[Rfam]
RNA sequence: ACCUUCCUCGCUUUAGCAGCACGUAAAUAUUGGUGUGUUAUAGUCAAGGCCAACCCCAAUAUUAUGUGUGCUGCUUCAGUAAGGCAGGA
Dot-bracket structure: .(((.(........(((((((((..((((((((.((................)).))))))))...)))))))))........).))).
Numbered sequence: 001a002c003c004u005u006c007c008u009c010g011c012u013u014u015a016g017c018a019g020c021a022c023g024u025a026a027a028u029a030u031u032g033g034u035g036u037g038u039u040a041u042a043g044u045c046a047a048g049g050c051c052a053a054c055c056c057c058a059a060u061a062u063u064a065u066g067u068g069u070g071c072u073g074c075u076u077c078a079g080u081a082a083g084g085c086a087g088g089a
Stems, first nucleotide, its partner, number of pairs: 002088003006084001015075009026063008035054002

About this RNA
Shown here is an 89-nucleotide sequence from Danio rerio, a member of the family "mir-15 microRNA precursor family". Lineage of the source: Eukaryota > Chordata > Actinopterygii > Danioninae > Danio. About the family: This family represents the related mir-15a and mir-15b sequences. The family has 164 seed sequences and 2,045 matches in Rfam 15.1. Gene Ontology terms of the family: RISC complex and miRNA-mediated post-transcriptional gene silencing. A reference for the family is Lagos-Quintana et al. (2001), "Identification of novel genes coding for small expressed RNAs", Science.